[Rfam]
RNA sequence: UGCAUUUCACUCCUUUCGUAUAUAUUGUAAACCUUCACACUAAUGUGAAGG
Numbered sequence: 001u002g003c004a005u006u007u008c009a010c011u012c013c014u015u016u017c018g019u020a021u022a023u024a025u026u027g028u029a030a031a032c033c034u035u036c037a038c039a040c041u042a043a044u045g046u047g048a049a050g051g
Stems, first nucleotide, its partner, number of pairs: 014051003019047005
RNA: Bacillus sRNA 1